[Rfam]
RNA sequence: GAACCCAAUACGCUGAAUUCCUUCUGGAAGCGGGGGAACCAUUUCUGGGGUGAAACGAUUUUUUCGUGGGGCGCCUUUCAGCCCUAACCCGACAGCUAACCUCGUAAGCGUUCUGAAAGGAGAU
Numbered sequence: 001g002a003a004c005c006c007a008a009u010a011c012g013c014u015g016a017a018u019u020c021c022u023u024c025u026g027g028a029a030g031c032g033g034g035g036g037a038a039c040c041a042u043u044u045c046u047g048g049g050g051u052g053a054a055a056c057g058a059u060u061u062u063u064u065c066g067u068g069g070g071g072c073g074c075c076u077u078u079c080a081g082c083c084c085u086a087a088c089c090c091g092a093c094a095g096c097u098a099a100c101c102u103c104g105u106a107a108g109c110g111u112u113c114u115g116a117a118a119g120g121a122g123a124u
Base pairs, nucleotide, nucleotide: 011110012109013108014107018029019028020027030105031104032103033102034101035100040047041046048090049089050088056066057065058064069084070083071082072081
c-di-AMP riboswitch aptamer (ydaO/yuaA leader): a 124-nucleotide RNA sequence from Alicyclobacillus acidoterrestris. The organism belongs to Alicyclobacillus, within Bacteria. It scores 98 bits against the family's covariance model. Pairs were carried over by alignment from the consensus structure.